This 93-nucleotide RNA from Cohnella pontilimi belongs to the Rfam family "c-di-GMP-I riboswitch aptamer". The organism belongs to Cohnella, within Bacteria.
RNA sequence: UCACGACAAAGGCAAACCCGGUGAAAACCGGUGACGCAAAGCUACAGGGGCUAACGGCGCGAGUGAGCGCGCCUAUGCCAGCCAGCCGCCGAA
Numbered sequence: 001u002c003a004c005g006a007c008a009a010a011g012g013c014a015a016a017c018c019c020g021g022u023g024a025a026a027a028c029c030g031g032u033g034a035c036g037c038a039a040a041g042c043u044a045c046a047g048g049g050g051c052u053a054a055c056g057g058c059g060c061g062a063g064u065g066a067g068c069g070c071g072c073c074u075a076u077g078c079c080a081g082c083c084a085g086c087c088g089c090c091g092a093a
Base pairs, nucleotide, nucleotide: 012037013036018031019030020029021028022027041086042085043084047083048082049079050078051077056073057072058071059070060069061068

A reference for the family is Weinberg et al. (2007), "Identification of 22 candidate structured RNAs in bacteria using the CMfinder comparative genomics pipeline", Nucleic Acids Res. It scores 73 bits against the family's covariance model.